[Rfam]
The record is a 63-nucleotide RNA from Phytomonas sp. EM1, which matches "Trypanosomatid snoRNA TB10Cs3H1" in Rfam. It is annotated as an H/ACA-box small nucleolar RNA. Rfam 15.1 lists 46 matches to the family in 16 species.

RNA sequence: AACAGUGUCGCUAUGCGUCUCCACUUUUACAUGUGGUGCCACGGUACGAAACACGUGUGAGAU
Dot-bracket structure: .((((((....(((.(((..((((........))))....)))))).....))).))).....